[Rfam]
RNA sequence: UACAAAAUAUAGGUUGCACUUCAUAUAAUUUUGAAAAUAUGGUUCAAAAGUCUCUACAAAUCACCGUAAAUGAUUUACUAUGAAGGCAGUUUUAUUCUAC
Numbered sequence: 001u002a003c004a005a006a007a008u009a010u011a012g013g014u015u016g017c018a019c020u021u022c023a024u025a026u027a028a029u030u031u032u033g034a035a036a037a038u039a040u041g042g043u044u045c046a047a048a049a050g051u052c053u054c055u056a057c058a059a060a061u062c063a064c065c066g067u068a069a070a071u072g073a074u075u076u077a078c079u080a081u082g083a084a085g086g087c088a089g090u091u092u093u094a095u096u097c098u099a100c
Base pairs, nucleotide, nucleotide: 019085020084021083022082023081024080025079029049030048031047032046033045034044035043058076059075060074061073062072063071
RNA: Purine riboswitch aptamer
Organism: Heyndrickxia shackletonii